[Rfam]
RNA sequence: ACCGUUAAGCCAUCUCUCCAGCCCAGGAAAGUAUUUUAAAAGAAUAAAAUUUAUUUUGGGCUGGAGAGAUGGCUUAGCGGU
Numbered sequence: 001a002c003c004g005u006u007a008a009g010c011c012a013u014c015u016c017u018c019c020a021g022c023c024c025a026g027g028a029a030a031g032u033a034u035u036u037u038a039a040a041a042g043a044a045u046a047a048a049a050u051u052u053a054u055u056u057u058g059g060g061c062u063g064g065a066g067a068g069a070u071g072g073c074u075u076a077g078c079g080g081u
Base pairs, nucleotide, nucleotide: 002080003079004078005077006076007075008074009073010072011071012070013069014068015067016066017065018064019063020062021061022060023059024058
The family of this 81-nucleotide sequence from Jaculus jaculus is "mir-3473 microRNA precursor family". The family has 5 seed sequences and 1,094 matches in Rfam 15.1. Pairs were carried over by alignment from the consensus structure, which was predicted with RNAalifold. The organism belongs to Jaculus, within Eukaryota. A search with the family's covariance model found it, with a score of 77 bits.